Shown here is a 260-nucleotide RNA sequence from Terfezia boudieri, a member of the family "Small nucleolar RNA snR191". By type it is an H/ACA-box small nucleolar RNA. The organism belongs to Terfezia boudieri, within Eukaryota. The base pairs follow the family's consensus structure, which was predicted with WAR. Its family is annotated with nucleolus and RNA processing in the Gene Ontology. On this family, see Badis et al., RNA 2003: "A snoRNA that guides the two most conserved pseudouridine modifications within rRNA confers a growth advantage in yeast".
RNA sequence: UCCCAUUGAUUCCUGUCAGGGUAGCUGUGCGCAUCUUUGGAUGCAUCAAUCACGGAUUGCCUGUUACAACAAUGGGAGAGCAAACCUUUCCCGCCCGAGUCUCCUCCAUCGUUCUGAUAGAGGGAGCUCACCGGCUCCACUCCCGUUCUGGGAGAAGCCAAUUAUAGGGUCUGGUGUGUUUCGUUCAGAGUUGAGCCUGGAUUUGCACUUUUCGGGGUUCAUAAUACAUACUAGUGCUCUUAGUUAUGAUUCACACAUGC
Numbered sequence: 001u002c003c004c005a006u007u008g009a010u011u012c013c014u015g016u017c018a019g020g021g022u023a024g025c026u027g028u029g030c031g032c033a034u035c036u037u038u039g040g041a042u043g044c045a046u047c048a049a050u051c052a053c054g055g056a057u058u059g060c061c062u063g064u065u066a067c068a069a070c071a072a073u074g075g076g077a078g079a080g081c082a083a084a085c086c087u088u089u090c091c092c093g094c095c096c097g098a099g100u101c102u103c104c105u106c107c108a109u110c111g112u113u114c115u116g117a118u119a120g121a122g123g124g125a126g127c128u129c130a131c132c133g134g135c136u137c138c139a140c141u142c143c144c145g146u147u148c149u150g151g152g153a154g155a156a157g158c159c160a161a162u163u164a165u166a167g168g169g170u171c172u173g174g175u176g177u178g179u180u181u182c183g184u185u186c187a188g189a190g191u192u193g194a195g196c197c198u199g200g201a202u203u204u205g206c207a208c209u210u211u212u213c214g215g216g217g218u219u220c221a222u223a224a225u226a227c228a229u230a231c232u233a234g235u236g237c238u239c240u241u242a243g244u245u246a247u248g249a250u251u252c253a254c255a256c257a258u259g260c
Base pairs, nucleotide, nucleotide: 003075004074005073006072007071019062020061021060022059023058024057026056028054031044032043033042034041086174087173090169091168092167097129098128099127100126102124103123104122105121106120108118109117110116133159134158135157140154141153142152143151144150145149176254177253178252181249182248183247184246193239194238195237196236199232200231202223204221205220207218208217